The family of this 74-nucleotide RNA from Branchiostoma floridae is "mir-2061 microRNA precursor family". Rfam's curators put it in the seed alignment. The base pairs follow the family's consensus structure, which was predicted with RNAalifold.

RNA sequence: GUUUUCCACGGGCAAUGUAUCUAGCGCAACACGUUAACCCGAGCUGUUGCAUAGGUACAUUGGUCAGUGGGAGC
Dot-bracket structure: ..(((((((((.(((((((((((..((((((.(((......))))))))).))))))))))).)).))))))).
Numbered sequence: 001g002u003u004u005u006c007c008a009c010g011g012g013c014a015a016u017g018u019a020u021c022u023a024g025c026g027c028a029a030c031a032c033g034u035u036a037a038c039c040c041g042a043g044c045u046g047u048u049g050c051a052u053a054g055g056u057a058c059a060u061u062g063g064u065c066a067g068u069g070g071g072a073g074c
Stems, first nucleotide, its partner, number of pairs: 003073007010065002013062011026050006033044003